Small nucleolar RNA SNORD113/SNORD114 family: a 72-nucleotide RNA sequence from Molossus molossus. Its family is annotated with nucleolus and RNA processing in the Gene Ontology. Its Rfam clan is "SNORD74 clan". About the family: The imprinted human domain at 14q32 contains two clusters of tandemly repeated small nucleolar RNAs named 14q(I) and 14q(II) snoRNAs. The family has 59 seed sequences and 5,721 matches in Rfam 15.1. Pairs were carried over by alignment from the consensus structure, which is taken from published work.

RNA sequence: CGCAUCAGUGAUGACCACUGAUGGCUUCUGAGUUGCACACAAUGAGUGCGCGUCUGGAGCUCUGAGGUCCAA
Numbered sequence: 001c002g003c004a005u006c007a008g009u010g011a012u013g014a015c016c017a018c019u020g021a022u023g024g025c026u027u028c029u030g031a032g033u034u035g036c037a038c039a040c041a042a043u044g045a046g047u048g049c050g051c052g053u054c055u056g057g058a059g060c061u062c063u064g065a066g067g068u069c070c071a072a
Stems, first nucleotide, its partner, number of pairs: 002070001004068003